The family of this 46-nucleotide sequence from Verrucomicrobia bacterium LW23 is "Acido-Lenti-1 RNA".
RNA sequence: CCCAGGGCUCACGCCAUGGGCUAUAAGCCUUCGCGCCUGUGGCGCU
Numbered sequence: 001c002c003c004a005g006g007g008c009u010c011a012c013g014c015c016a017u018g019g020g021c022u023a024u025a026a027g028c029c030u031u032c033g034c035g036c037c038u039g040u041g042g043c044g045c046u
Stems, first nucleotide, its partner, number of pairs: 001020004006015003033045005